Shown here is a 126-nucleotide RNA sequence from Callithrix jacchus, a member of the family "U4atac minor spliceosomal RNA". Gene Ontology terms of the family: spliceosomal tri-snRNP complex assembly, pre-mRNA 5'-splice site binding and mRNA 5'-splice site recognition. U4atac is an essential component of the minor U12-type spliceosome complex which is required for removal of the rarer class of eukaryotic introns (AT-AC, U12-type). On this family, see Lorkovic et al., RNA 2005: "Evolutionary conservation of minor U12-type spliceosome between plants and humans". The family's consensus secondary structure is taken from published work. The source organism's lineage runs through Eukaryota, Bilateria, Platyrrhini, Callitrichinae and Callithrix.
RNA sequence: ACCAUCCUUUUCUCAGGGUUGUACUAUGUCCAAUCAGCGCAUAGUGAGGGCAGCACUGCUAACGCCUACACAACACACCUGCAUCAACUAAAGGUUUGCUUUUACCUUGAUGCAAUUUUCAGUAAA
Numbered sequence: 001a002c003c004a005u006c007c008u009u010u011u012c013u014c015a016g017g018g019u020u021g022u023a024c025u026a027u028g029u030c031c032a033a034u035c036a037g038c039g040c041a042u043a044g045u046g047a048g049g050g051c052a053g054c055a056c057u058g059c060u061a062a063c064g065c066c067u068a069c070a071c072a073a074c075a076c077a078c079c080u081g082c083a084u085c086a087a088c089u090a091a092a093g094g095u096u097u098g099c100u101u102u103u104a105c106c107u108u109g110a111u112g113c114a115a116u117u118u119u120c121a122g123u124a125a126a
Stems, first nucleotide, its partner, number of pairs: 006018004021059003027052005037045002081113006089104006